[Rfam]
RNA: Bacillaceae-1 RNA
RNA sequence: UAAAAAGGAGCAUCAGCUAAAGGCGCCACGUCCGUAUGUCUUCGCCGAUGGACCUACAUCCUGUAGG
Numbered sequence: 001u002a003a004a005a006a007g008g009a010g011c012a013u014c015a016g017c018u019a020a021a022g023g024c025g026c027c028a029c030g031u032c033c034g035u036a037u038g039u040c041u042u043c044g045c046c047g048a049u050g051g052a053c054c055u056a057c058a059u060c061c062u063g064u065a066g067g
Base pairs, nucleotide, nucleotide: 011050012049013048014047016045017044025040027038028037053067054066055065056064057063